[Rfam]
RNA sequence: UUCAGCUACGGUGACAUGGUGCCCGAAACAAUAGCUGGUAAAAUUGUUGGAGGAGUCUGCUCUCUCAGUGGAGUACUUGUAAUUGCUCUUCCUGUACCAGUUAUUGUUUCAAAC
Dot-bracket structure: .(..(..((((.(((..(..((..............((((........(((.........)))..........))))................)).)..))).))))..)..).
The family of this 114-nucleotide RNA from Ceratitis capitata is "Potassium channel RNA editing signal". Rfam classes the family as a cis-regulatory element. The base pairs follow the family's consensus structure, which is taken from published work. For this family Rfam cites "Control of human potassium channel inactivation by editing of a small mRNA hairpin" (Bhalla et al., Nat Struct Mol Biol, 2004).